[Rfam]
RNA sequence: AGGCAGCCUCUUUGCUGACGGCCCUAAGGUCUCACGGCAUCGGCGGCGUUAUUUUGCUCGGAUAUUAAAUUAAGCUAUGGCUCUUCGGAUCGGCGGAGAGCUCGCCUCGCUGAUGCUGAUCUAGUAAGCUUUUAGCACAUU
Number, nucleotide and partner (000 for none) at each position: 001a000002g050003g049004c048005a000006g000007c046008c045009u043010c042011u000012u000013u039014g038015c037016u036017g035018a000019c000020g000021g000022c000023c000024c000025u000026a000027a000028g000029g000030u000031c000032u000033c000034a000035c017036g016037g015038c014039a013040u000041c000042g010043g009044c000045g008046g007047c000048g004049u003050u002051a000052u000053u000054u000055u000056g000057c000058u000059c000060g000061g000062a000063u000064a000065u000066u000067a000068a000069a000070u000071u000072a000073a000074g000075c135076u134077a133078u000079g000080g129081c128082u127083c000084u000085u000086c000087g122088g121089a120090u119091c118092g000093g116094c115095g114096g000097a000098g108099a107100g106101c000102u000103c000104g000105c000106c100107u099108c098109g000110c000111u000112g000113a000114u095115g094116c093117u000118g091119a090120u089121c088122u087123a000124g000125u000126a000127a082128g081129c080130u000131u000132u000133u077134a076135g075136c000137a000138c000139a000140u000141u000

The family of this 141-nucleotide RNA from Zingiber officinale is "Small nucleolar RNA snoR77". A search with the family's covariance model found it, with a score of 79 bits. Rfam 15.1 lists 649 matches to the family in 221 species. Pairs were carried over by alignment from the consensus structure, which was predicted with WAR. The literature on the family includes a 2002 paper in Curr Biol by Marker et al., "Experimental RNomics: identification of 140 candidates for small non-messenger RNAs in the plant Arabidopsis thaliana". NCBI's taxonomy places the organism under Eukaryota, Streptophyta, Euphyllophyta, Mesangiospermae, Zingiber.